[Rfam]
RNA sequence: UUAACCUUUAAUUUAGUCCAGAGAGAUUAGAAAGGUGGUACUUAGAGUGUGGAUAUUUACUAUGCUAUAAGUAUGACGUUUAUAAUGAUGGUAAAUUUAAAAACCUUCUGCUCUGUGGCAGAAGGUUUUUUUAUU
Numbered sequence: 001u002u003a004a005c006c007u008u009u010a011a012u013u014u015a016g017u018c019c020a021g022a023g024a025g026a027u028u029a030g031a032a033a034g035g036u037g038g039u040a041c042u043u044a045g046a047g048u049g050u051g052g053a054u055a056u057u058u059a060c061u062a063u064g065c066u067a068u069a070a071g072u073a074u075g076a077c078g079u080u081u082a083u084a085a086u087g088a089u090g091g092u093a094a095a096u097u098u099a100a101a102a103a104c105c106u107u108c109u110g111c112u113c114u115g116u117g118g119c120a121g122a123a124g125g126u127u128u129u130u131u132u133a134u135u
Stems, first nucleotide, its partner, number of pairs: 004036006013030006039073006046066007099130014
Dot-bracket structure: ...((((((...((((((......))))))))))))..((((((.(((((((.......))))))).)))))).........................((((((((((((((....)))))))))))))).....
Notes: Shown here is a 135-nucleotide RNA from Clostridium novyi, a member of the family "PyrR binding site". Lineage of the source: Bacteria > Eubacteriales > Clostridiaceae > Clostridium > Clostridium novyi. The match comes from Rfam's covariance-model search (61 bits). Rfam 15.1 lists 1,498 matches to the family in 930 species. From the family's description: This family represents the PyrR binding site and terminator structure.